Record summary:
A member of the RNA family "mir-9256 microRNA precursor family" from Cnephaeus nilssonii, 67 nucleotides long.
[Rfam]
RNA sequence: GUAUACACUGAGUGGCCAGAUUAUUAUGAUCCCUGAACGCAUAAUCAUCUGGUCACUCAGUGUAUUU
Numbered sequence: 001g002u003a004u005a006c007a008c009u010g011a012g013u014g015g016c017c018a019g020a021u022u023a024u025u026a027u028g029a030u031c032c033c034u035g036a037a038c039g040c041a042u043a044a045u046c047a048u049c050u051g052g053u054c055a056c057u058c059a060g061u062g063u064a065u066u067u
Base pairs, nucleotide, nucleotide: 004064005063006062007061008060009059010058011057012056013055014054015053016052017051019049020048021047023045024044025043026042027041028040
Description
The match comes from Rfam's covariance-model search (81 bits).